Group II catalytic intron D1-D4-1: a 96-nucleotide sequence from Psychromonas sp. Urea-02u-13. It scores 61 bits against the family's covariance model.
RNA sequence: CGCACGGCGGGGAAACCAGUCAUGUGAUUAAACAGAAGUCAGCAGACGGCAUAGUAGCCCAACGCCCAUCGUAAUGGAGGGGACAUGGUGAAGGCC
Numbered sequence: 001c002g003c004a005c006g007g008c009g010g011g012g013a014a015a016c017c018a019g020u021c022a023u024g025u026g027a028u029u030a031a032a033c034a035g036a037a038g039u040c041a042g043c044a045g046a047c048g049g050c051a052u053a054g055u056a057g058c059c060c061a062a063c064g065c066c067c068a069u070c071g072u073a074a075u076g077g078a079g080g081g082g083a084c085a086u087g088g089u090g091a092a093g094g095c096c
Base pairs, nucleotide, nucleotide: 001026002025004023006021007020008019010017011016038047039046040045048096049095050094057089058088059087065081066080067079
Dot-bracket structure: ((.(.(((.((....)).))).).))...........(((....)))(((......(((.....(((...........))).....)))....)))